[Rfam]
Overview: A member of the RNA family "Glycine riboswitch aptamer" from Croceibacterium xixiisoli, 98 nucleotides long.
RNA sequence: GGGCGUAUCGUGGGAGAGCUCACAUGUCCUGCCGGGCAUGUGGCGCCGAAGGAGCAACCGCCCCGGAAUCUCUCAGGCAAAAGGACCGCGAUACGGUU
Dot-bracket structure: .....((((((((......(((((((..........))))))).(((((..(((...((.....))...))))).))).......)))))))).....

The match comes from Rfam's covariance-model search (66 bits).